[Rfam]
RNA sequence: AAACUUACCUGGCACAGGUGACACCGUGAUCACGAAGGCGGUUCUCCCAGGGCGAGGCCUGCCAUUGCACUCCGGCGGGGCUGACCCCUGCGAUUAACCCAAAUGUGGUUAACUCGAGUGCGAAAUUUUUGUUAGAAAGCGGAGUGCCACAGGGGUCAGUACUGGCACCAAUACUUU
Numbered sequence: 001a002a003a004c005u006u007a008c009c010u011g012g013c014a015c016a017g018g019u020g021a022c023a024c025c026g027u028g029a030u031c032a033c034g035a036a037g038g039c040g041g042u043u044c045u046c047c048c049a050g051g052g053c054g055a056g057g058c059c060u061g062c063c064a065u066u067g068c069a070c071u072c073c074g075g076c077g078g079g080g081c082u083g084a085c086c087c088c089u090g091c092g093a094u095u096a097a098c099c100c101a102a103a104u105g106u107g108g109u110u111a112a113c114u115c116g117a118g119u120g121c122g123a124a125a126u127u128u129u130u131g132u133u134a135g136a137a138a139g140c141g142g143a144g145u146g147c148c149a150c151a152g153g154g155g156u157c158a159g160u161a162c163u164g165g166c167a168c169c170a171a172u173a174c175u176u177u
Stems, first nucleotide, its partner, number of pairs: 012121004017047002020044002023042005049089004054085001056082003059078005091116003094112003098108002
U1 spliceosomal RNA: a 177-nucleotide RNA from Portunus trituberculatus. Rfam classes the family as a spliceosomal small nuclear RNA. Rfam's curators write: U1 is a small nuclear RNA (snRNA) component of the spliceosome (involved in pre-mRNA splicing). Pairs were carried over by alignment from the consensus structure, which is taken from published work. The match comes from Rfam's covariance-model search (120 bits).